[Rfam]
The record is a 69-nucleotide RNA sequence from Thauera propionica, which matches "int-alpA RNA" in Rfam. Rfam 15.1 lists 577 matches to the family in 491 species. Rfam's curators write: Acidobacteria (1 example), Planctomycetes (1 example), Proteobacteria.
RNA sequence: GCCGCCCCUACCUCGACGGAGGGAAAAGCCGGACACCUGGCCGGCCUGGGGUGGCACCUUCUACCAGGA
Numbered sequence: 001g002c003c004g005c006c007c008c009u010a011c012c013u014c015g016a017c018g019g020a021g022g023g024a025a026a027a028g029c030c031g032g033a034c035a036c037c038u039g040g041c042c043g044g045c046c047u048g049g050g051g052u053g054g055c056a057c058c059u060u061c062u063a064c065c066a067g068g069a
Base pairs, nucleotide, nucleotide: 001055002054003053004052005051006050007049008048011022012021013020014019028045029044030043031042032041037068038067040065
Record summary: It scores 62 bits against the family's covariance model.